The record is a 111-nucleotide sequence from Chelatococcus reniformis, which matches "SAM-I/IV (S-adenosyl methionine) riboswitch aptamer" in Rfam. Lineage of the source: Bacteria > Pseudomonadati > Alphaproteobacteria > Hyphomicrobiales > Chelatococcus. Gene Ontology terms of the family: S-adenosylmethionine metabolic process and regulation of gene expression. Pairs were carried over by alignment from the consensus structure, which is taken from published work.
RNA sequence: AGCCAGCAUCAAGAGUUGCGGGCGACGCCCCGACGCCAACCUGCUGUCCGAGCAAGGUGGCGCUCCCUGCCAAGGGAGGAUGCGGCCGACCCGGCAACAAAACGGAUCAGG
Dot-bracket structure: .....(((((....(.(.((((......))))))(((..((((((...[.))).))).))).................))))).((((...)))).........]......